[Rfam]
RNA sequence: CUGUAUUCUACAGUGCAUGUGUCUCCAGUGUGAGUUGGCAGCUGGAGGCGCUGCCCUGUUGGGAUCAC
Number, nucleotide and partner (000 for none) at each position: 001c000002u000003g000004u000005a000006u064007u063008c062009u061010a059011c058012a057013g056014u000015g054016c053017a000018u000019g051020u050021g049022u048023c047024u046025c045026c044027a043028g042029u041030g000031u000032g000033a000034g000035u000036u000037g000038g000039c000040a000041g029042c028043u027044g026045g025046a024047g023048g022049c021050g020051c019052u000053g016054c015055c000056c013057u012058g011059u010060u000061g009062g008063g007064a006065u000066c000067a000068c000